[Rfam]
RNA sequence: UGGCAGUGAUGACUAUCUUAAGACACCUUUGGAAUAACUGUGAAAUAAUUCCCUCCCCCUGAGCCAU
Dot-bracket structure: ((((..........................................................)))).
Rfam assigns this 67-nucleotide RNA from Tyto alba to the family "Small nucleolar RNA SNORD58".
The family's RNA type in Rfam is C/D-box small nucleolar RNA.
Rfam's curators write: snoRNA U58 is found in introns 1, 3 and 6 of the ribosomal protein RPL17 gene in humans.
NCBI's taxonomy places the organism under Eukaryota, Metazoa, Dipnotetrapodomorpha, Amniota, Tyto.
The base pairs follow the family's consensus structure, which was predicted with PFOLD.